[Rfam]
RNA: Bacterial RNase P class A
RNA sequence: CGGGACGGGCAGACAGUCGCCGCGUAUCGCGUAAGGCAUACGGGGAGGAAAGUCCGGGCUCCGCAGGGUAGAAUGCCGGUUAACGGCCGGGCGCGGUAACGCGACGGAAAGUGGAACAGAAAGCAAAACCGCCGAUGGCUGCUUUGGCAGCACAGGCAAGGGUGAAAAGGUGCGGUAAGGGCGCACCGCGCAUUUGGUAACAAUAUGCGGCAGGCCAAACCCCAUUCGGAGCAAGACCAAACAGAACGCAAUGACGCUGCCCGCCGAGCGUUCGGGUAGGUUGCUUGAGCAUACCGGCAACGGUAUGCCUAGAGGAAUGACUGUCCGAGACAGAACCCGGCUUACCGCCUGUCCGGUGUG
Numbered sequence: 001c002g003g004g005a006c007g008g009g010c011a012g013a014c015a016g017u018c019g020c021c022g023c024g025u026a027u028c029g030c031g032u033a034a035g036g037c038a039u040a041c042g043g044g045g046a047g048g049a050a051a052g053u054c055c056g057g058g059c060u061c062c063g064c065a066g067g068g069u070a071g072a073a074u075g076c077c078g079g080u081u082a083a084c085g086g087c088c089g090g091g092c093g094c095g096g097u098a099a100c101g102c103g104a105c106g107g108a109a110a111g112u113g114g115a116a117c118a119g120a121a122a123g124c125a126a127a128a129c130c131g132c133c134g135a136u137g138g139c140u141g142c143u144u145u146g147g148c149a150g151c152a153c154a155g156g157c158a159a160g161g162g163u164g165a166a167a168a169g170g171u172g173c174g175g176u177a178a179g180g181g182c183g184c185a186c187c188g189c190g191c192a193u194u195u196g197g198u199a200a201c202a203a204u205a206u207g208c209g210g211c212a213g214g215c216c217a218a219a220c221c222c223c224a225u226u227c228g229g230a231g232c233a234a235g236a237c238c239a240a241a242c243a244g245a246a247c248g249c250a251a252u253g254a255c256g257c258u259g260c261c262c263g264c265c266g267a268g269c270g271u272u273c274g275g276g277u278a279g280g281u282u283g284c285u286u287g288a289g290c291a292u293a294c295c296g297g298c299a300a301c302g303g304u305a306u307g308c309c310u311a312g313a314g315g316a317a318u319g320a321c322u323g324u325c326c327g328a329g330a331c332a333g334a335a336c337c338c339g340g341c342u343u344a345c346c347g348c349c350u351g352u353c354c355g356g357u358g359u360g
Base pairs, nucleotide, nucleotide: 001356003354004353005352006351007350008349009348010347012325013324014323015322016321017320018319020045021044023042024041025040026039027038050343051342052341054340055339056338057337058336059231060230061229062228066261067260071227072226073225074224075223076090077089078088079087080086091105092103093102094101095100106222107221111220112219113216114215129161130160131157132156133155138151139150140149141148142147169187170186171185172184173183174182188211189209190208191207192206193205194203195202196201235282236281237280238279244273245272246271247270248269249268252266253265255263256262289308290307291306292305293304294303295302296301